RNA: mir-658 microRNA precursor family
RNA sequence: GCUCGGUUGCCGUGGUUGCAGACCGGGCCCGCCUGCUAGCCCGCUGACAGCGAGGCUUAGGGCCGAGGGAAGCGGGUCGGUGGGUCCGUCGGGAACUAGG
Numbered sequence: 001g002c003u004c005g006g007u008u009g010c011c012g013u014g015g016u017u018g019c020a021g022a023c024c025g026g027g028c029c030c031g032c033c034u035g036c037u038a039g040c041c042c043g044c045u046g047a048c049a050g051c052g053a054g055g056c057u058u059a060g061g062g063c064c065g066a067g068g069g070a071a072g073c074g075g076g077u078c079g080g081u082g083g084g085u086c087c088g089u090c091g092g093g094a095a096c097u098a099g100g
Stems, first nucleotide, its partner, number of pairs: 002099002005096001007095002010092003014086003018081002021078004028069003033065001035063003038057002040054001042052004